RNA sequence: CGAGUUGGCCGGGCAGUCGCUGCGUUCGCAAGAACGGGGAGGAAAGUCCGGGCUCCAUAGAGCAGGGUGCCAGAUAACGUCUGGGCGGCGUGAGCCGACGACCAGUGCAACAGAGAGUAGACCGCCUGCCUUCGGGCCGGUAAGGGUGAAAGGGUGCGGUAAGAGCGCACCGCGCGGCUGGUAACAGUUCGCGGCACGGUAAACUCCACCCGGAGCAAGAUCAAAUAGGGUUCCACUAUUCUUCGGAAUUAAUGCGUGGCUCGCGUUGGAACCGGGUAGAUUGCUUGAGCCUGUGAGCGAUUGCAGGCCUAGAGGAAUGACUGCCGCUCCUUCGGGAGAACAGGACCCGGCUUAUAGGCCAACUCACCAA
Numbered sequence: 001c002g003a004g005u006u007g008g009c010c011g012g013g014c015a016g017u018c019g020c021u022g023c024g025u026u027c028g029c030a031a032g033a034a035c036g037g038g039g040a041g042g043a044a045a046g047u048c049c050g051g052g053c054u055c056c057a058u059a060g061a062g063c064a065g066g067g068u069g070c071c072a073g074a075u076a077a078c079g080u081c082u083g084g085g086c087g088g089c090g091u092g093a094g095c096c097g098a099c100g101a102c103c104a105g106u107g108c109a110a111c112a113g114a115g116a117g118u119a120g121a122c123c124g125c126c127u128g129c130c131u132u133c134g135g136g137c138c139g140g141u142a143a144g145g146g147u148g149a150a151a152g153g154g155u156g157c158g159g160u161a162a163g164a165g166c167g168c169a170c171c172g173c174g175c176g177g178c179u180g181g182u183a184a185c186a187g188u189u190c191g192c193g194g195c196a197c198g199g200u201a202a203a204c205u206c207c208a209c210c211c212g213g214a215g216c217a218a219g220a221u222c223a224a225a226u227a228g229g230g231u232u233c234c235a236c237u238a239u240u241c242u243u244c245g246g247a248a249u250u251a252a253u254g255c256g257u258g259g260c261u262c263g264c265g266u267u268g269g270a271a272c273c274g275g276g277u278a279g280a281u282u283g284c285u286u287g288a289g290c291c292u293g294u295g296a297g298c299g300a301u302u303g304c305a306g307g308c309c310u311a312g313a314g315g316a317a318u319g320a321c322u323g324c325c326g327c328u329c330c331u332u333c334g335g336g337a338g339a340a341c342a343g344g345a346c347c348c349g350g351c352u353u354a355u356a357g358g359c360c361a362a363c364u365c366a367c368c369a370a
Stems, first nucleotide, its partner, number of pairs: 002365009011355001012325007020039002023036005044353003048350005053215004060261001063258001065211005070084005085099001086097004100206002105204002107200002122145002124141003128137003153171006172195001173193005178187003219282004229273006252266005289308008
RNA: Bacterial RNase P class A